[Rfam]
RNA sequence: GAACCUUUCGUGGGAGAGAGAGGCGAAGCCGCCUCCGCCGAAGGCGCAAACUCCCGGAAUCGCUCAGGCAGACGUACCACGAAAGAUAU
Numbered sequence: 001g002a003a004c005c006u007u008u009c010g011u012g013g014g015a016g017a018g019a020g021a022g023g024c025g026a027a028g029c030c031g032c033c034u035c036c037g038c039c040g041a042a043g044g045c046g047c048a049a050a051c052u053c054c055c056g057g058a059a060u061c062g063c064u065c066a067g068g069c070a071g072a073c074g075u076a077c078c079a080c081g082a083a084a085g086a087u088a089u
Stems, first nucleotide, its partner, number of pairs: 006084008020035004037069003040065002044063003051056001
Rfam assigns this 89-nucleotide sequence from Paraburkholderia eburnea to the family "Glycine riboswitch aptamer".